[Rfam]
RNA sequence: UGGCUCCAUACGUGGGGCUCCAGCACGGGGAAUCCAGUGAAGUAUGCCAUUUGAGUGGCUGGCCGAAAGGAAAAGAAAAGAGGGAACGAUGUGGGAACCUGCUGUGUCUGCACCCCUCGGGUAAGUGAACGGCAAUUAUGGGUCAAGCAAUGAGCCAAGAUAUGAUGUUCGUUGAAGGACUAGGAAAGGCUAUCAAGGCACGAGGAGUAAAGGUAAAAAUCAAGCAUUUGUGUCAGUAUUUUGAUUAUAUUAAGGAAGUUUGCCCUU
Numbered sequence: 001u002g003g004c005u006c007c008a009u010a011c012g013u014g015g016g017g018c019u020c021c022a023g024c025a026c027g028g029g030g031a032a033u034c035c036a037g038u039g040a041a042g043u044a045u046g047c048c049a050u051u052u053g054a055g056u057g058g059c060u061g062g063c064c065g066a067a068a069g070g071a072a073a074a075g076a077a078a079a080g081a082g083g084g085a086a087c088g089a090u091g092u093g094g095g096a097a098c099c100u101g102c103u104g105u106g107u108c109u110g111c112a113c114c115c116c117u118c119g120g121g122u123a124a125g126u127g128a129a130c131g132g133c134a135a136u137u138a139u140g141g142g143u144c145a146a147g148c149a150a151u152g153a154g155c156c157a158a159g160a161u162a163u164g165a166u167g168u169u170c171g172u173u174g175a176a177g178g179a180c181u182a183g184g185a186a187a188g189g190c191u192a193u194c195a196a197g198g199c200a201c202g203a204g205g206a207g208u209a210a211a212g213g214u215a216a217a218a219a220u221c222a223a224g225c226a227u228u229u230g231u232g233u234c235a236g237u238a239u240u241u242u243g244a245u246u247a248u249a250u251u252a253a254g255g256a257a258g259u260u261u262g263c264c265c266u267u
Stems, first nucleotide, its partner, number of pairs: 006030002012026003035046002080118003083114002087110001090106005126145003130142001133140002152193001154190003201243005207237002211229004252267004
Annotation:
The record is a 267-nucleotide RNA sequence from Molossus molossus, which matches "Mason-Pfizer monkey virus packaging signal" in Rfam. For this family Rfam cites "Mutational analysis of the predicted secondary RNA structure of the Mason-Pfizer monkey virus packaging signal" (Mustafa et al., Virus Res, 2004). Rfam's curators write: This family represents a group of sequences that are related to the Mason-Pfizer monkey virus (MPMV) packaging signal. The packaging signal is located in the 5' UTR and is required for specific RNA encapsidation. It scores 86 bits against the family's covariance model. The family's consensus secondary structure was predicted with PFOLD. The organism belongs to Molossus, within Eukaryota. Rfam classes the family as a cis-regulatory element.